[Rfam]
RNA sequence: CUUGGUGCAGUGAUUAUACAAACAUUCCUCGAACUGACGGGAGAUCCCCCGUGAUCGACUCCUAUACACCCAUAGAAUCUGAGCGCCA
Numbered sequence: 001c002u003u004g005g006u007g008c009a010g011u012g013a014u015u016a017u018a019c020a021a022a023c024a025u026u027c028c029u030c031g032a033a034c035u036g037a038c039g040g041g042a043g044a045u046c047c048c049c050c051g052u053g054a055u056c057g058a059c060u061c062c063u064a065u066a067c068a069c070c071c072a073u074a075g076a077a078u079c080u081g082a083g084c085g086c087c088a
Stems, first nucleotide, its partner, number of pairs: 003088002006085002

About this RNA: The family of this 88-nucleotide RNA sequence from Brachypodium distachyon is "Small nucleolar RNA snoR8a". The match comes from Rfam's covariance-model search (62 bits). The family's RNA type in Rfam is C/D-box small nucleolar RNA.